A member of the RNA family "Small nucleolar RNA SNORD34" from Lottia gigantea, 92 nucleotides long. Rfam describes the family as follows. snoRNA U34 is found in intron 5 of the ribosomal protein L13a gene in humans. Rfam 15.1 lists 1,319 matches to the family in 583 species. By type it is a C/D-box small nucleolar RNA. Pairs were carried over by alignment from the consensus structure, which was predicted with PFOLD. Taxonomically the source falls in Lottia (Eukaryota, Metazoa, Bilateria, Gastropoda). Gene Ontology terms of the family: RNA processing and nucleolus. The match comes from Rfam's covariance-model search (39 bits).
RNA sequence: AUGAUCCAAUGAUGUUUGAUAUUACCUACAUUGUCUGAUUAUAAAUAAUGUGAAAUUAUGUGAUUAGAACAUUGAAUGAAGCUGAGGAUCAU
Numbered sequence: 001a002u003g004a005u006c007c008a009a010u011g012a013u014g015u016u017u018g019a020u021a022u023u024a025c026c027u028a029c030a031u032u033g034u035c036u037g038a039u040u041a042u043a044a045a046u047a048a049u050g051u052g053a054a055a056u057u058a059u060g061u062g063a064u065u066a067g068a069a070c071a072u073u074g075a076a077u078g079a080a081g082c083u084g085a086g087g088a089u090c091a092u
Stems, first nucleotide, its partner, number of pairs: 001092002004089004